[Rfam]
RNA sequence: CGUACCUGUCCGUUCAAUUUCACAGACAGGGGUGGAGGAACCAUCGUUGGCGCCAUCGGCGCCUUGGGGUGUAGUGCGGCCCGUUGCCUGGCAGUCCAGCUGCCAACCGGCCGCACCGGGAUGACUCUCUCCCGAACCCGACAGCUAACUUCGCAGGCGUGUAGAGAGGACUC
Number, nucleotide and partner (000 for none) at each position: 001c156002g000003u000004a000005c031006c030007u029008g000009u000010c000011c000012g000013u000014u000015c000016a000017a000018u000019u000020u000021c000022a000023c000024a000025g000026a000027c000028a000029g007030g006031g005032g154033u153034g152035g151036a150037g149038g000039a000040a000041c000042c066043a065044u000045c000046g000047u000048u000049g000050g000051c000052g000053c000054c000055a000056u000057c000058g000059g000060c000061g000062c000063c000064u000065u043066g042067g139068g138069g137070u000071g000072u000073a000074g000075u115076g114077c113078g112079g111080c110081c109082c000083g000084u000085u000086g000087c000088c000089u000090g000091g000092c000093a000094g000095u000096c000097c000098a000099g000100c000101u000102g000103c000104c000105a000106a000107c000108c000109g081110g080111c079112c078113g077114c076115a075116c000117c000118g133119g132120g131121a130122u000123g000124a000125c000126u000127c000128u000129c000130u121131c120132c119133c118134g000135a000136a000137c069138c068139c067140g000141a000142c000143a000144g000145c000146u000147a000148a000149c037150u036151u035152c034153g033154c032155a000156g001157g000158c000159g000160u000161g000162u000163a000164g000165a000166g000167a000168g000169g000170a000171c000172u000173c000

Annotation: A member of the RNA family "c-di-AMP riboswitch aptamer (ydaO/yuaA leader)" from Arthrobacter mobilis, 173 nucleotides long. Lineage of the source: Bacteria > Actinomycetota > Micrococcales > Micrococcaceae > Arthrobacter. The match comes from Rfam's covariance-model search (57 bits).